A member of the RNA family "RAGATH-18 RNA", 76 nucleotides long. Pairs were carried over by alignment from the consensus structure, which is taken from published work. The family's RNA type in Rfam is small RNA. Actinobacteria, Firmicutes, Fusobacteria, Thermotogae (1 example).
RNA sequence: CUUGUGGACUGUUAUAUCAAAUGGGAGUAGAUUUAUAUAAUGAUAUAAAACCAAACCAGACAGGAAGAAGCAAGAA
Numbered sequence: 001c002u003u004g005u006g007g008a009c010u011g012u013u014a015u016a017u018c019a020a021a022u023g024g025g026a027g028u029a030g031a032u033u034u035a036u037a038u039a040a041u042g043a044u045a046u047a048a049a050a051c052c053a054a055a056c057c058a059g060a061c062a063g064g065a066a067g068a069a070g071c072a073a074g075a076a
Stems, first nucleotide, its partner, number of pairs: 001074005009063005022058003030051001032049001035046002